[Rfam]
RNA: mir-551 microRNA precursor family
Organism: Scyliorhinus torazame
RNA sequence: AGACCCUGGAAAUCAAGCUUGGGUGAGGCCUAUGACGUACAAAACAGGCGACCCAUACUUGGUUUCCGAGGCUG
Number, nucleotide and partner (000 for none) at each position: 001a000002g073003a000004c071005c070006c000007u068008g000009g066010a065011a064012a063013u062014c061015a000016a059017g058018c000019u000020u000021g054022g053023g052024u051025g000026a000027g000028g049029c048030c047031u046032a000033u000034g000035a000036c000037g000038u000039a000040c000041a000042a000043a000044a000045c000046a031047g030048g029049c028050g000051a024052c023053c022054c021055a000056u000057a000058c017059u016060u000061g014062g013063u012064u011065u010066c009067c000068g007069a000070g005071g004072c000073u002074g000